Rfam assigns this 151-nucleotide RNA sequence from Ricinus communis to the family "small nucleolar RNA snoR137".

RNA sequence: GUUGCUUCCUUAAUAAUGAAGUGGCUCUUUAAUAUGUCAGUCACUUUUAAUGAGAAGCAUAUAUUAAAUUUAAUCUAUAAAAUGCCAGUUUCAAACAGCAUGAUUUGCUUCUUCUUUUUAAGAAUUGUGCUACCUGUCUCCUGGUAUAUUU
Numbered sequence: 001g002u003u004g005c006u007u008c009c010u011u012a013a014u015a016a017u018g019a020a021g022u023g024g025c026u027c028u029u030u031a032a033u034a035u036g037u038c039a040g041u042c043a044c045u046u047u048u049a050a051u052g053a054g055a056a057g058c059a060u061a062u063a064u065u066a067a068a069u070u071u072a073a074u075c076u077a078u079a080a081a082a083u084g085c086c087a088g089u090u091u092c093a094a095a096c097a098g099c100a101u102g103a104u105u106u107g108c109u110u111c112u113u114c115u116u117u118u119u120a121a122g123a124a125u126u127g128u129g130c131u132a133c134c135u136g137u138c139u140c141c142u143g144g145u146a147u148a149u150u151u
Stems, first nucleotide, its partner, number of pairs: 003059006017049005022043005084145005097131003101127005